RNA sequence: GGGAAAUGAGGAGUGGUUAUUUACUCGCUUUUAUUAUGCGAGAAGAGCUCUUCGCUCCGCCUGUUACGACAAUUGAGCGCUCUCCUUUGUCUUACCAUCUGAUCCC
Numbered sequence: 001g002g003g004a005a006a007u008g009a010g011g012a013g014u015g016g017u018u019a020u021u022u023a024c025u026c027g028c029u030u031u032u033a034u035u036a037u038g039c040g041a042g043a044a045g046a047g048c049u050c051u052u053c054g055c056u057c058c059g060c061c062u063g064u065u066a067c068g069a070c071a072a073u074u075g076a077g078c079g080c081u082c083u084c085c086u087u088u089g090u091c092u093u094a095c096c097a098u099c100u101g102a103u104c105c106c
Base pairs, nucleotide, nucleotide: 001106002105003104004103014097015096016095017094024042025041026040027039028038044083045082046081047080048079050077051076061075063073064072